RNA: MIR2619 microRNA precursor family
Organism: Medicago truncatula
RNA sequence: AAACAGCCUGUAUGUAUUGGAUCUUUGGCAGUUUCGGCCCCAAUGCCACUUUUGACUUAGUCUUUGCUGUUGUGGCACCCACAAUGGUCGACACGUGGCACCUCACUUAAGGGAUGUGGGUGCCACGUCAGCGAAGACUAAGUCAAAAGUGGCAUUGGGGGCCAAAACUGCCAAAGAUCCAAUACAUACGAUGCUGUUU
Numbered sequence: 001a002a003a004c005a006g007c008c009u010g011u012a013u014g015u016a017u018u019g020g021a022u023c024u025u026u027g028g029c030a031g032u033u034u035c036g037g038c039c040c041c042a043a044u045g046c047c048a049c050u051u052u053u054g055a056c057u058u059a060g061u062c063u064u065u066g067c068u069g070u071u072g073u074g075g076c077a078c079c080c081a082c083a084a085u086g087g088u089c090g091a092c093a094c095g096u097g098g099c100a101c102c103u104c105a106c107u108u109a110a111g112g113g114a115u116g117u118g119g120g121u122g123c124c125a126c127g128u129c130a131g132c133g134a135a136g137a138c139u140a141a142g143u144c145a146a147a148a149g150u151g152g153c154a155u156u157g158g159g160g161g162c163c164a165a166a167a168c169u170g171c172c173a174a175a176g177a178u179c180c181a182a183u184a185c186a187u188a189c190g191a192u193g194c195u196g197u198u199u
Base pairs, nucleotide, nucleotide: 001199002198004196005195006194007193011188012187013186014185015184016183017182018181019180020179021178022177023176024175025174026173027172028171029170030169031168032167033166034165036163037162038161039160040158041157042156043155071127073125074124075123076122077121078120079119080118